The family of this 398-nucleotide sequence from Synechococcus sp. WH 7805 is "Bacterial RNase P class A". Rfam classes the family as a ribozyme. The match comes from Rfam's covariance-model search (253 bits). About the family: Ribonuclease P (RNase P) is a ubiquitous endoribonuclease, found in archaea, bacteria and eukarya as well as chloroplasts and mitochondria.
RNA sequence: GAAAGCAGGCGAGGUGAUCGCGACCGCACCUGAGCCUUGUGCCUAGGUGCAGUUGAGGAAAGUCCGGGCUCCCCGAUGGCCAGGCUUGCUGGGUAACGCCCAGUGCGGGUGACCGUGAGGAGAGUGCCACAGAAACACACCGCCGAUGGCCCCAUGGGAGCAAUCCCUUUGGCACAGGCAAGGGUGCAAAGGUGCGGUAAGAGCGCACCAGCAGCAUCGAGAGGUGCUGGCUCGGUAAACCCCGGCCGGGAGCAAGGCCCAGGAACGUUGGCUGGCCAUUGGCCCCGUUCCGCCUUUGUGAGCCGCUCGAGGUCGUCGGUAACGGCGAUCCCAGAUAGAUGAUCACCCCCCUUCUGCGGAAGGGAGAACAGAACCCGGCUUAUGUCCUGCUUUCACCC
Dot-bracket structure: (((((((((.(.(((((((.((((.(((((((...........))))))).))))....[[[.[[[[[((((.....[....(((.(((((((.....)))))(((((....)))).)((...(((((...........(((((..((.(....................).))..)))..)).......((((((.......)))))).((((((((....))))))).)..)))..))))))))).))))...(((........(...(.......]......)...)...........)))......((((((((....))))))))..........)))))))..........................]]]]]]]].)..)))))))))....
Numbered sequence: 001g002a003a004a005g006c007a008g009g010c011g012a013g014g015u016g017a018u019c020g021c022g023a024c025c026g027c028a029c030c031u032g033a034g035c036c037u038u039g040u041g042c043c044u045a046g047g048u049g050c051a052g053u054u055g056a057g058g059a060a061a062g063u064c065c066g067g068g069c070u071c072c073c074c075g076a077u078g079g080c081c082a083g084g085c086u087u088g089c090u091g092g093g094u095a096a097c098g099c100c101c102a103g104u105g106c107g108g109g110u111g112a113c114c115g116u117g118a119g120g121a122g123a124g125u126g127c128c129a130c131a132g133a134a135a136c137a138c139a140c141c142g143c144c145g146a147u148g149g150c151c152c153c154a155u156g157g158g159a160g161c162a163a164u165c166c167c168u169u170u171g172g173c174a175c176a177g178g179c180a181a182g183g184g185u186g187c188a189a190a191g192g193u194g195c196g197g198u199a200a201g202a203g204c205g206c207a208c209c210a211g212c213a214g215c216a217u218c219g220a221g222a223g224g225u226g227c228u229g230g231c232u233c234g235g236u237a238a239a240c241c242c243c244g245g246c247c248g249g250g251a252g253c254a255a256g257g258c259c260c261a262g263g264a265a266c267g268u269u270g271g272c273u274g275g276c277c278a279u280u281g282g283c284c285c286c287g288u289u290c291c292g293c294c295u296u297u298g299u300g301a302g303c304c305g306c307u308c309g310a311g312g313u314c315g316u317c318g319g320u321a322a323c324g325g326c327g328a329u330c331c332c333a334g335a336u337a338g339a340u341g342a343u344c345a346c347c348c349c350c351c352u353u354c355u356g357c358g359g360a361a362g363g364g365a366g367a368a369c370a371g372a373a374c375c376c377g378g379c380u381u382a383u384g385u386c387c388u389g390c391u392u393u394c395a396c397c398c
Stems, first nucleotide, its partner, number of pairs: 001394009011383001013347007021055004026050007060381003064378005069252004078279001083247003087244002089103005104118001105116004119242002124240002126236003140183002142179003147174002150171001191209006211231001212229007256304003267290001271286001311330008